[Rfam]
RNA sequence: GGUCACGAGCACCAGCGCGAAGCCCCGGCUCGCUGGUCAGCAACCCCUGUCACGACGGGGUGCUCCGGGAGAUGACCUGGUCGGCGUCCCACCGGGGGGUGCCGGCAACUCGUGAUC
Numbered sequence: 001g002g003u004c005a006c007g008a009g010c011a012c013c014a015g016c017g018c019g020a021a022g023c024c025c026c027g028g029c030u031c032g033c034u035g036g037u038c039a040g041c042a043a044c045c046c047c048u049g050u051c052a053c054g055a056c057g058g059g060g061u062g063c064u065c066c067g068g069g070a071g072a073u074g075a076c077c078u079g080g081u082c083g084g085c086g087u088c089c090c091a092c093c094g095g096g097g098g099g100u101g102c103c104g105g106c107a108a109c110u111c112g113u114g115a116u117c
Base pairs, nucleotide, nucleotide: 001077002076003075004074009038011037012036013035014034015033016032021030022029039064040063041062044060045059046058048055080106081105082104083103084102085101086100087099088098089097
A member of the RNA family "SAM (S-adenosyl methionine) riboswitch aptamer" from Cellulomonas chitinilytica, 117 nucleotides long. Pairs were carried over by alignment from the consensus structure, which is taken from published work. It scores 86 bits against the family's covariance model. About the family: SAM-IV is a mRNA element that regulates gene expression via direct sensing of S-adenosylmethionine (SAM or AdoMet). SAM-IV riboswitches share conserved nucleotide positions with the previously described SAM-I riboswitches sequence analysis and molecular recognition experiments suggest that SAM-I and SAM-IV riboswitches share similar ligand binding sites, but have different scaffolds.